RNA sequence: CGCGCCGACCCGCCUAAUCGUGCUUUCACGAACCGGGGACCCACAGCAACACCGGGGUGAAUCCGCGGGCCACGGCCUGCGGUAGGGCGUACUUCCCGCCCGAAUCCGUCAGCUAACCCGGUCGGCGGUCACGGAAGGAGUG
Numbered sequence: 001c002g003c004g005c006c007g008a009c010c011c012g013c014c015u016a017a018u019c020g021u022g023c024u025u026u027c028a029c030g031a032a033c034c035g036g037g038g039a040c041c042c043a044c045a046g047c048a049a050c051a052c053c054g055g056g057g058u059g060a061a062u063c064c065g066c067g068g069g070c071c072a073c074g075g076c077c078u079g080c081g082g083u084a085g086g087g088c089g090u091a092c093u094u095c096c097c098g099c100c101c102g103a104a105u106c107c108g109u110c111a112g113c114u115a116a117c118c119c120g121g122u123c124g125g126c127g128g129u130c131a132c133g134g135a136a137g138g139a140g141u142g
Stems, first nucleotide, its partner, number of pairs: 011127004018031003032122006042054001055107003063082006085101004
The family of this 142-nucleotide sequence from Micromonospora sp. MH33 is "c-di-AMP riboswitch aptamer (ydaO/yuaA leader)". The match comes from Rfam's covariance-model search (86 bits). Lineage of the source: Bacteria > Bacillati > Actinomycetes > Micromonosporaceae > Micromonospora.